The family of this 75-nucleotide RNA sequence from Anolis carolinensis is "mir-192/215 microRNA precursor family".
This family represents the human microRNA (miRNA) precursors mir-192 and mir-215. Animal miRNAs are transcribed as ~70nt precursors and subsequently processed by the Dicer enzyme to give a ~22nt product.
Rfam 15.1 lists 810 matches to the family in 628 species.
[Rfam]
RNA sequence: UUAGGGUAAUGACCUAUGAUUUGACAGACUGUGCUUUCUAUGUCUGCCUGUCAUUUCUGUAGGCCAAUACUCUGU
Numbered sequence: 001u002u003a004g005g006g007u008a009a010u011g012a013c014c015u016a017u018g019a020u021u022u023g024a025c026a027g028a029c030u031g032u033g034c035u036u037u038c039u040a041u042g043u044c045u046g047c048c049u050g051u052c053a054u055u056u057c058u059g060u061a062g063g064c065c066a067a068u069a070c071u072c073u074g075u
Stems, first nucleotide, its partner, number of pairs: 002074007010066002013063004018057002022053006029046001031044001